The record is a 65-nucleotide sequence, which matches "Pestivirus 3' UTR SLI" in Rfam. It is annotated as a cis-regulatory element. The base pairs follow the family's consensus structure. The sequence is in the family's curated seed alignment. The literature on the family includes a 2020 paper in Nucleic Acids Res by Kokkonos et al., "Evolutionary selection of pestivirus variants with altered or no microRNA dependency".

[Rfam]
RNA sequence: ACCCCAGUCGACACUGUAGUUCUGACGUUCCUGAAUGGGACUGAAGUAGAUAGGUCGAUGGGGCC
Numbered sequence: 001a002c003c004c005c006a007g008u009c010g011a012c013a014c015u016g017u018a019g020u021u022c023u024g025a026c027g028u029u030c031c032u033g034a035a036u037g038g039g040a041c042u043g044a045a046g047u048a049g050a051u052a053g054g055u056c057g058a059u060g061g062g063g064c065c
Stems, first nucleotide, its partner, number of pairs: 002063005008058005021046001023044001027041005